Record summary:
Shown here is a 55-nucleotide RNA sequence from Salmo salar, a member of the family "UnaL2 LINE 3' element". From the family's description: The eel long interspersed element (LINE) UnaL2 and its partner short interspersed element (SINE) share a conserved 3' tail containing a stem-loop that is critical for their retrotransposition. Presumably, the first step of retrotransposition is the recognition of their 3' tails by UnaL2-encoded reverse transcriptase. Rfam classes the family as a cis-regulatory element.

RNA sequence: UUCAUACAUAAUUUGUAAGUCGCUCUGGUUAAGAGCGUCUGCUAAAUGACGUAAA
Numbered sequence: 001u002u003c004a005u006a007c008a009u010a011a012u013u014u015g016u017a018a019g020u021c022g023c024u025c026u027g028g029u030u031a032a033g034a035g036c037g038u039c040u041g042c043u044a045a046a047u048g049a050c051g052u053a054a055a
Base pairs, nucleotide, nucleotide: 014044015042016041017040021037022036023035024034025033026032